[Rfam]
RNA sequence: AAUAAACUUUGCCAAACUAGAUGUGAAUCUAGGACGGAAAGCCACAGGUCUCUAUGAGAUAGCUGGGUUGCCAAG
Numbered sequence: 001a002a003u004a005a006a007c008u009u010u011g012c013c014a015a016a017c018u019a020g021a022u023g024u025g026a027a028u029c030u031a032g033g034a035c036g037g038a039a040a041g042c043c044a045c046a047g048g049u050c051u052c053u054a055u056g057a058g059a060u061a062g063c064u065g066g067g068u069u070g071c072c073a074a075g
Stems, first nucleotide, its partner, number of pairs: 012037002017032006040069004045065003048060003052056001